[Rfam]
RNA: Legionella RNA 69
RNA sequence: AGACGAUGCUUAUGCAUCUCCUCAGCCUGAACGAACCCUGGAUAUAGCCAGGCUCUCGUAUAAUCCUUAUCUAUUUAUU
Number, nucleotide and partner (000 for none) at each position: 001a000002g020003a019004c000005g018006a017007u016008g015009c014010u000011u000012a000013u000014g009015c008016a007017u006018c005019u003020c002021c000022u000023c000024a054025g053026c052027c051028u050029g049030a000031a000032c000033g045034a000035a043036c000037c041038c000039u000040g000041g037042a000043u035044a000045u033046a000047g000048c000049c029050a028051g027052g026053c025054u024055c000056u000057c000058g000059u000060a000061u000062a000063a000064u000065c000066c000067u000068u000069a000070u000071c000072u000073a000074u000075u000076u000077a000078u000079u000